Source information:
The record is a 117-nucleotide sequence from Polymorphobacter multimanifer, which matches "ALIL pseudoknot" in Rfam. Rfam links the family to the GO term positive regulation of translational frameshifting. A search with the family's covariance model found it, with a score of 89 bits. By type it is a cis-regulatory element. NCBI's taxonomy places the organism under Bacteria, Pseudomonadati, Pseudomonadota, Sphingosinicellaceae, Polymorphobacter. The base pairs follow the family's consensus structure, which is taken from published work.

[Rfam]
RNA sequence: AGCAUAUUUUGCGCAGGCGGAGCUCGACCGCCAAGGCAAAUGGUGAUGGGGUUCAUCGAAGCUCAUCACAAGGACUUGGGGAUCGAGCCGAUCUGUCGGGAACUGGCAGUCGCCCCA
Numbered sequence: 001a002g003c004a005u006a007u008u009u010u011g012c013g014c015a016g017g018c019g020g021a022g023c024u025c026g027a028c029c030g031c032c033a034a035g036g037c038a039a040a041u042g043g044u045g046a047u048g049g050g051g052u053u054c055a056u057c058g059a060a061g062c063u064c065a066u067c068a069c070a071a072g073g074a075c076u077u078g079g080g081g082a083u084c085g086a087g088c089c090g091a092u093c094u095g096u097c098g099g100g101a102a103c104u105g106g107c108a109g110u111c112g113c114c115c116c117a
Stems, first nucleotide, its partner, number of pairs: 016032005079116003089112002092109001094108005